[Rfam]
RNA sequence: AUGGAGGUGAUGAAUAUUUCCCCAAAUGAUCGAAGCUGAUUAAACUGUGCUACAUUUUUCUCUCUUCAGAGAGACCAAGCCAGAUUUCUGAUCCAU
Numbered sequence: 001a002u003g004g005a006g007g008u009g010a011u012g013a014a015u016a017u018u019u020c021c022c023c024a025a026a027u028g029a030u031c032g033a034a035g036c037u038g039a040u041u042a043a044a045c046u047g048u049g050c051u052a053c054a055u056u057u058u059u060c061u062c063u064c065u066u067c068a069g070a071g072a073g074a075c076c077a078a079g080c081c082a083g084a085u086u087u088c089u090g091a092u093c094c095a096u
Base pairs, nucleotide, nucleotide: 001096002095003094004093005092
This 96-nucleotide sequence from Ziziphus jujuba belongs to the Rfam family "Small nucleolar RNA Z103". NCBI's taxonomy places the organism under Eukaryota, eudicotyledons, Gunneridae, rosids, Ziziphus jujuba. The literature on the family includes a 2003 paper in Nucleic Acids Res by Chen et al., "The high diversity of snoRNAs in plants: identification and comparative study of 120 snoRNA genes from Oryza sativa". The match comes from Rfam's covariance-model search (92 bits). The family's RNA type in Rfam is C/D-box small nucleolar RNA.